[Rfam]
The record is a 73-nucleotide RNA from a Dehalococcoidia bacterium, which matches "tRNA" in Rfam.
About the family: Transfer RNA (tRNA) molecules are approximately 80 nucleotides in length.
By type it is a transfer RNA.

RNA sequence: GCCCAGAUAGCUCAGCCGGUAGAGCACGCCCUUGGUAAGGGCGAGGUCACGAGUUCGAAUCUCGUUCUGGGCU
Number, nucleotide and partner (000 for none) at each position: 001g072002c071003c070004c069005a068006g067007a066008u000009a000010g025011c024012u023013c022014a000015g000016c000017c000018g000019g000020u000021a000022g013023a012024g011025c010026a000027c043028g042029c041030c040031c039032u000033u000034g000035g000036u000037a000038a000039g031040g030041g029042c028043g027044a000045g000046g000047u000048c000049a065050c064051g063052a062053g061054u000055u000056c000057g000058a000059a000060u000061c053062u052063c051064g050065u049066u007067c006068u005069g004070g003071g002072c001073u000